[Rfam]
RNA sequence: UGCCCCACCUCGGGGUGCCUUUACUGGCUGAGAUGCGCAAGCAGACCCGUUGAACCUGAACCGGUUAGGACCGGCGGAGGGAAGGUAUGGCAAUUCCGC
Number, nucleotide and partner (000 for none) at each position: 001u000002g000003c000004c000005c000006c000007a086008c085009c084010u083011c049012g048013g047014g046015g000016u043017g028018c027019c026020u000021u000022u000023a000024c000025u000026g019027g018028c017029u000030g000031a000032g000033a000034u000035g042036c041037g000038c000039a000040a000041g036042c035043a016044g000045a000046c014047c013048c012049g011050u000051u000052g000053a000054a000055c080056c079057u078058g000059a000060a000061c074062c073063g072064g071065u000066u000067a000068g000069g000070a000071c064072c063073g062074g061075c000076g000077g000078a057079g056080g055081g000082a000083a010084g009085g008086u007087a000088u000089g000090g000091c000092a000093a000094u000095u000096c000097c000098g000099c000
Annotation:
A member of the RNA family "TPP riboswitch aptamer (THI element)" from Yoonia vestfoldensis, 99 nucleotides long. The source organism's lineage runs through Bacteria, Pseudomonadota, Alphaproteobacteria, Rhodobacterales and Yoonia vestfoldensis. A search with the family's covariance model found it, with a score of 64 bits.